[Rfam]
RNA sequence: CGGGCAGUAUCUAAAAUAGAACUGCACUUGUCUCGUAGCUAGCCGCUGGCACAAUCAAAUAAGCGAAAGUUCUGCCUUGAUCCGUAAGGACAGGGACAGAGGG
Numbered sequence: 001c002g003g004g005c006a007g008u009a010u011c012u013a014a015a016a017u018a019g020a021a022c023u024g025c026a027c028u029u030g031u032c033u034c035g036u037a038g039c040u041a042g043c044c045g046c047u048g049g050c051a052c053a054a055u056c057a058a059a060u061a062a063g064c065g066a067a068a069g070u071u072c073u074g075c076c077u078u079g080a081u082c083c084g085u086a087a088g089g090a091c092a093g094g095g096a097c098a099g100a101g102g103g
Stems, first nucleotide, its partner, number of pairs: 002028002004025005010020002072099003075095005081090003
Dot-bracket structure: .(((((((.((.......))))))).))...........................................((((((((.(((....)))))))).)))....
The family of this 103-nucleotide RNA sequence from Bacillus sp. FJAT-27231 is "pan motif". It is annotated as a cis-regulatory element.